Annotation: The record is a 133-nucleotide sequence from Motacilla alba, which matches "Small nucleolar RNA SNORA13" in Rfam. The family has 50 seed sequences and 1,034 matches in Rfam 15.1. ACA13 is a member of the H/ACA class of snoRNA that guide the sites of modification of uridines to pseudouridines. Gene Ontology terms of the family: RNA processing and nucleolus. The family is grouped with related families in Rfam's "SNORA13 clan". By type it is an H/ACA-box small nucleolar RNA.

[Rfam]
RNA sequence: GGCCUUUGUGUUGCCCAUUCAUUCCUGUCCAGAAUGAAUGUGGUGUCAAAAAAGGCAAAGAGGAAUUCUUGCACAAACUGGUUCAGGGAGCUGGUUAUGUAUCUUCUUCCUCUCUGUUUUUGCAAGGACAAAA
Numbered sequence: 001g002g003c004c005u006u007u008g009u010g011u012u013g014c015c016c017a018u019u020c021a022u023u024c025c026u027g028u029c030c031a032g033a034a035u036g037a038a039u040g041u042g043g044u045g046u047c048a049a050a051a052a053a054g055g056c057a058a059a060g061a062g063g064a065a066u067u068c069u070u071g072c073a074c075a076a077a078c079u080g081g082u083u084c085a086g087g088g089a090g091c092u093g094g095u096u097a098u099g100u101a102u103c104u105u106c107u108u109c110c111u112c113u114c115u116g117u118u119u120u121u122g123c124a125a126g127g128a129c130a131a132a133a
Stems, first nucleotide, its partner, number of pairs: 002056006009048002012045004016040008068126006075119003082116001085113003088109002093104002